Rfam assigns this 78-nucleotide RNA from Ilyobacter polytropus to the family "Glycine riboswitch aptamer".
Rfam describes the family as follows. This family represents the bacterial glycine riboswitch.
The base pairs follow the family's consensus structure.
[Rfam]
RNA sequence: AUGAAGGUAUAGGGAGAGAGCUGGUAAAACAGCCACCGAAGAAGUAAAUCUUUCAGGUAAAUGGACCUAUGCUGGACG
Numbered sequence: 001a002u003g004a005a006g007g008u009a010u011a012g013g014g015a016g017a018g019a020g021c022u023g024g025u026a027a028a029a030c031a032g033c034c035a036c037c038g039a040a041g042a043a044g045u046a047a048a049u050c051u052u053u054c055a056g057g058u059a060a061a062u063g064g065a066c067c068u069a070u071g072c073u074g075g076a077c078g
Base pairs, nucleotide, nucleotide: 006073007072008071009070010069011068012067013066020033021032022031023030035058036057037056038054039053042052043051044050